[Rfam]
RNA: skipping-rope RNA
Organism: Sporosarcina phage Lietuvens
RNA sequence: CGACGCAGAGGGCGGAACAGGCAGCCGUUGUCCUUCGAUAGGAGAUGCGAGAUACGCCGCCUCGCCUGCGUUA
Number, nucleotide and partner (000 for none) at each position: 001c000002g072003a071004c070005g069006c068007a067008g066009a000010g000011g029012g028013c027014g026015g025016a000017a000018c000019a000020g058021g057022c056023a000024g000025c015026c014027g013028u012029u011030g000031u042032c000033c000034u000035u000036c000037g000038a000039u000040a000041g000042g031043a000044g000045a000046u000047g065048c064049g063050a062051g061052a000053u000054a000055c000056g022057c021058c020059g000060c000061c051062u050063c049064g048065c047066c008067u007068g006069c005070g004071u003072u002073a000